FMN riboswitch aptamer (RFN element): a 148-nucleotide sequence from Bacillus sp. OxB-1. The organism belongs to Bacillus, within Bacteria.
RNA sequence: CAAACGCUUCGGGGCAAGGUGAAAUUCCUUACCGGCGGUGAUCGAGCAAUGGCUCGUCAGUCCGUGACCCGUCCUUCCUCCUUGGAAGGCGGUGGAGCUGGUGAAACUCCGGCACCGACAGUUACAGUCUGGAUGGGAGAAGCGAUUU
Numbered sequence: 001c002a003a004a005c006g007c008u009u010c011g012g013g014g015c016a017a018g019g020u021g022a023a024a025u026u027c028c029u030u031a032c033c034g035g036c037g038g039u040g041a042u043c044g045a046g047c048a049a050u051g052g053c054u055c056g057u058c059a060g061u062c063c064g065u066g067a068c069c070c071g072u073c074c075u076u077c078c079u080c081c082u083u084g085g086a087a088g089g090c091g092g093u094g095g096a097g098c099u100g101g102u103g104a105a106a107c108u109c110c111g112g113c114a115c116c117g118a119c120a121g122u123u124a125c126a127g128u129c130u131g132g133a134u135g136g137g138a139g140a141a142g143c144g145a146u147u148u
Base pairs, nucleotide, nucleotide: 003146005144006143007142008141009140010139017029018028019027031128032127033117034116035065036064037063038062060115061114069092070091071090072089097113098112099111100110101109119131120130121129